[Rfam]
RNA sequence: GCUCAGUGGAGACCAGAACCCACUCAAAACAACGGGGCGCUCCGAAAAGCCUUACGAGUAGGACCCGC
Numbered sequence: 001g002c003u004c005a006g007u008g009g010a011g012a013c014c015a016g017a018a019c020c021c022a023c024u025c026a027a028a029a030c031a032a033c034g035g036g037g038c039g040c041u042c043c044g045a046a047a048a049g050c051c052u053u054a055c056g057a058g059u060a061g062g063a064c065c066c067g068c
Stems, first nucleotide, its partner, number of pairs: 006023004036051003042062002
A member of the RNA family "DUF805 RNA" from Hymenobacter oligotrophus, 68 nucleotides long.
The source organism's lineage runs through Bacteria, Pseudomonadati, Cytophagia, Hymenobacteraceae and Hymenobacter.